[Rfam]
RNA sequence: AUUUCUUUUAACAUAUCAAGAAGUCGAAUUGGCAGUGAAAAAUGAAGCAAAAAGUAAAAAGUCAUCAUUGUCUAUAACCAAAACCCAUAAACCCAUACCAUGCUUCUUUCUUCACUGCCAAUUCGACUUCUUGAUAUGUUAAAAGAAAU
Numbered sequence: 001a002u003u004u005c006u007u008u009u010a011a012c013a014u015a016u017c018a019a020g021a022a023g024u025c026g027a028a029u030u031g032g033c034a035g036u037g038a039a040a041a042a043u044g045a046a047g048c049a050a051a052a053a054g055u056a057a058a059a060a061g062u063c064a065u066c067a068u069u070g071u072c073u074a075u076a077a078c079c080a081a082a083a084c085c086c087a088u089a090a091a092c093c094c095a096u097a098c099c100a101u102g103c104u105u106c107u108u109u110c111u112u113c114a115c116u117g118c119c120a121a122u123u124c125g126a127c128u129u130c131u132u133g134a135u136a137u138g139u140u141a142a143a144a145g146a147a148a149u
Stems, first nucleotide, its partner, number of pairs: 004146015020130012033117007041109002044106003048102002055095001